[Rfam]
RNA sequence: CGAGUUGGUCGGGUAGCGGCUCCGAGUAAUCGGGGAGGAAAGUCCGGACUUCAUAGGGCACAGUGCCUUGCGCAAGCAAGGGCGGGGCGACCCGACGGAAAGUGCAACAGAAACAAACCGCCGCAAGGCAAGGGUGAAAUCGUGAGGUAAGAGCUCACGCCGGUCCGUCGUAAGGCGGCCGGGGGCAAACCCCACUGGAAGCAAGGCCAAAUAGGGGCGGGAUGAUGCGGCCCGCGGACCGCCCGGGUUGGCCGCGUAGAUAAAUCGCUGCACAAAAACAGAAUCCGGCUUACAGACCGACUCGCAUU
Numbered sequence: 001c002g003a004g005u006u007g008g009u010c011g012g013g014u015a016g017c018g019g020c021u022c023c024g025a026g027u028a029a030u031c032g033g034g035g036a037g038g039a040a041a042g043u044c045c046g047g048a049c050u051u052c053a054u055a056g057g058g059c060a061c062a063g064u065g066c067c068u069u070g071c072g073c074a075a076g077c078a079a080g081g082g083c084g085g086g087g088c089g090a091c092c093c094g095a096c097g098g099a100a101a102g103u104g105c106a107a108c109a110g111a112a113a114c115a116a117a118c119c120g121c122c123g124c125a126a127g128g129c130a131a132g133g134g135u136g137a138a139a140u141c142g143u144g145a146g147g148u149a150a151g152a153g154c155u156c157a158c159g160c161c162g163g164u165c166c167g168u169c170g171u172a173a174g175g176c177g178g179c180c181g182g183g184g185g186c187a188a189a190c191c192c193c194a195c196u197g198g199a200a201g202c203a204a205g206g207c208c209a210a211a212u213a214g215g216g217g218c219g220g221g222a223u224g225a226u227g228c229g230g231c232c233c234g235c236g237g238a239c240c241g242c243c244c245g246g247g248u249u250g251g252c253c254g255c256g257u258a259g260a261u262a263a264a265u266c267g268c269u270g271c272a273c274a275a276a277a278a279c280a281g282a283a284u285c286c287g288g289c290u291u292a293c294a295g296a297c298c299g300a301c302u303c304g305c306a307u308u
Stems, first nucleotide, its partner, number of pairs: 001304010011293001013271006020035006040291003044288005049201004056233004061197005066081005082096001083094004097192002102190002104186002118133002120129003141159006160183001161181003165178005205253004215244006226236003
RNA: Bacterial RNase P class A